permuted transfer-messenger RNA: a 211-nucleotide RNA from Histidinibacterium aquaticum. From the family's description: Bacterial tmRNA, also known as 10Sa RNA or SsrA, is named for its dual tRNA and mRNA-like properties. The organism belongs to Histidinibacterium, within Bacteria. The family's RNA type in Rfam is non-coding RNA gene.
RNA sequence: GGACAUAAACGCGCACGUAAUAAGCGGAUCGGACCCGGGGGCAGUACCCGGCGGCUCCACCAAAACACCCGGUCGUUGGCGGGUCAUGGGGCCGAACUAGGAUCGACGAACGUGUAAAGGUGUGGCUUUGUCCCGGUGAGGUACCACCGUUAUCGGUCCGUAAAGCAUAAUUGCCAACGACAAUCGUGCUCCGAUCGCCGUUGCUGCCUAA
Numbered sequence: 001g002g003a004c005a006u007a008a009a010c011g012c013g014c015a016c017g018u019a020a021u022a023a024g025c026g027g028a029u030c031g032g033a034c035c036c037g038g039g040g041g042c043a044g045u046a047c048c049c050g051g052c053g054g055c056u057c058c059a060c061c062a063a064a065a066c067a068c069c070c071g072g073u074c075g076u077u078g079g080c081g082g083g084u085c086a087u088g089g090g091g092c093c094g095a096a097c098u099a100g101g102a103u104c105g106a107c108g109a110a111c112g113u114g115u116a117a118a119g120g121u122g123u124g125g126c127u128u129u130g131u132c133c134c135g136g137u138g139a140g141g142u143a144c145c146a147c148c149g150u151u152a153u154c155g156g157u158c159c160g161u162a163a164a165g166c167a168u169a170a171u172u173g174c175c176a177a178c179g180a181c182a183a184u185c186g187u188g189c190u191c192c193g194a195u196c197g198c199c200g201u202u203g204c205u206g207c208c209u210a211a
Stems, first nucleotide, its partner, number of pairs: 001133005013123004025112002029109003035051005052094007134149004